A member of the RNA family "EGFOA-assoc-1 RNA", 250 nucleotides long.
Rfam classes the family as a small RNA.
RNA sequence: ACAUGCCUAGUUAAGAGGUAAUAUAUCUUAGCCAAUAGCCUUACUAGCUAAAGGGUAAAGCGAUUUUUCUGAAUGGCAAAUCAUGGCACUAGGAAAGAUACCUUGUAAGUCUAUUGUUAAAGAAAACGACAUCAAUCAGUCGUAUUAUAUGGUGACAUACGUUUAUGUAAAUGUCGAGGAUUCGCAAAGCCGACAAUAAAUAAAUAACGACGGGGGAGUUUGCAAGCCACCUGAGAUAGCGUUAUAGGCU
Numbered sequence: 001a002c003a004u005g006c007c008u009a010g011u012u013a014a015g016a017g018g019u020a021a022u023a024u025a026u027c028u029u030a031g032c033c034a035a036u037a038g039c040c041u042u043a044c045u046a047g048c049u050a051a052a053g054g055g056u057a058a059a060g061c062g063a064u065u066u067u068u069c070u071g072a073a074u075g076g077c078a079a080a081u082c083a084u085g086g087c088a089c090u091a092g093g094a095a096a097g098a099u100a101c102c103u104u105g106u107a108a109g110u111c112u113a114u115u116g117u118u119a120a121a122g123a124a125a126a127c128g129a130c131a132u133c134a135a136u137c138a139g140u141c142g143u144a145u146u147a148u149a150u151g152g153u154g155a156c157a158u159a160c161g162u163u164u165a166u167g168u169a170a171a172u173g174u175c176g177a178g179g180a181u182u183c184g185c186a187a188a189g190c191c192g193a194c195a196a197u198a199a200a201u202a203a204a205u206a207a208c209g210a211c212g213g214g215g216g217a218g219u220u221u222g223c224a225a226g227c228c229a230c231c232u233g234a235g236a237u238a239g240c241g242u243u244a245u246a247g248g249c250u
Base pairs, nucleotide, nucleotide: 010032011031012030013029014028015027033116034115035114040109041108042107043106044105052103053102054101063099064098065097066096067095068094069093070092126143127142128141129140155168156167157166158165159164172195173194174193175192176191211233212232213231214230215228216227